[Rfam]
RNA sequence: CUCCUGAAGUUUCGGGCACCAUAGAGGAAACUCUAUGAGUGAAUGUGGUUAAAUUCGGUGAACCCUAAAGAGUUAGAACUCCCUCAUGGGAAAACUAUAAGGGAAUACCGAGCCAAGCCCAAAAAUUUGAGAUUUGAGAUUUAAGAUUUGAAAUUUUAUUUAUGGAAUCCAAAAUCCAAAAUCCAAAAUCUAAAAUCGAGGGAAGGUGUAGAGACUAGUAAGCCACCGCCUAAAGGUACAAAACCUAUGGUGAAGGUAUAGUCCGGAGAGUGGGGAAACUCACAC
Numbered sequence: 001c002u003c004c005u006g007a008a009g010u011u012u013c014g015g016g017c018a019c020c021a022u023a024g025a026g027g028a029a030a031c032u033c034u035a036u037g038a039g040u041g042a043a044u045g046u047g048g049u050u051a052a053a054u055u056c057g058g059u060g061a062a063c064c065c066u067a068a069a070g071a072g073u074u075a076g077a078a079c080u081c082c083c084u085c086a087u088g089g090g091a092a093a094a095c096u097a098u099a100a101g102g103g104a105a106u107a108c109c110g111a112g113c114c115a116a117g118c119c120c121a122a123a124a125a126u127u128u129g130a131g132a133u134u135u136g137a138g139a140u141u142u143a144a145g146a147u148u149u150g151a152a153a154u155u156u157u158a159u160u161u162a163u164g165g166a167a168u169c170c171a172a173a174a175u176c177c178a179a180a181a182u183c184c185a186a187a188a189u190c191u192a193a194a195a196u197c198g199a200g201g202g203a204a205g206g207u208g209u210a211g212a213g214a215c216u217a218g219u220a221a222g223c224c225a226c227c228g229c230c231u232a233a234a235g236g237u238a239c240a241a242a243a244c245c246u247a248u249g250g251u252g253a254a255g256g257u258a259u260a261g262u263c264c265g266g267a268g269a270g271u272g273g274g275g276a277a278a279c280u281c282a283c284a285c
Stems, first nucleotide, its partner, number of pairs: 002016002025034002045226004050221001055111006064102003068098001112207002118201002125196004211264001213263005229250002233246001235244001237242001270283005
Group I catalytic intron: a 285-nucleotide RNA sequence from Tolypothrix bouteillei. NCBI's taxonomy places the organism under Bacteria, Bacillati, Nostocales, Tolypothrichaceae, Tolypothrix bouteillei.